[Rfam]
RNA sequence: UAUGAUAGAAUAGACAAGCUGUUAGAACAGCCCUUGGUGCUUCACUUCUUUCGCCAAGCAUAUUACAAACCUUAGUAGAACUAAGUGUUAAAGGAGACACUCAUG
Numbered sequence: 001u002a003u004g005a006u007a008g009a010a011u012a013g014a015c016a017a018g019c020u021g022u023u024a025g026a027a028c029a030g031c032c033c034u035u036g037g038u039g040c041u042u043c044a045c046u047u048c049u050u051u052c053g054c055c056a057a058g059c060a061u062a063u064u065a066c067a068a069a070c071c072u073u074a075g076u077a078g079a080a081c082u083a084a085g086u087g088u089u090a091a092a093g094g095a096g097a098c099a100c101u102c103a104u105g
Base pairs, nucleotide, nucleotide: 018031019030020029021028022027033058034057035056036055037054038053039052045096046095047094048093049092050091068089069088070087072085
Dot-bracket structure: .................(((((....))))).(((((((.....[[[[[[.))))))).........(((.(............).))).]]]]]].........
The family of this 105-nucleotide RNA from Streptococcus hyointestinalis is "PreQ1-II (pre queuosine) riboswitch aptamer". NCBI's taxonomy places the organism under Bacteria, Bacillati, Bacillota, Lactobacillales, Streptococcus. A reference for the family is Kang et al. (2014), "Structural determinants for ligand capture by a class II preQ1 riboswitch", Proc Natl Acad Sci U S A. About the family: preQ1-II riboswitch was first reported for Weinberg et al. 2007 it was recognised in Streptococcaceae and Lactococcus families in 5' untranslated regions of genes of a membrane protein classified as COG4708 or DUF988. Meyers et al. 2008 confirm that preQ1-II recognise the queuosine (Q) precursor pre-queuosine 1 (preQ1). Gene Ontology term of the family: queuosine biosynthetic process.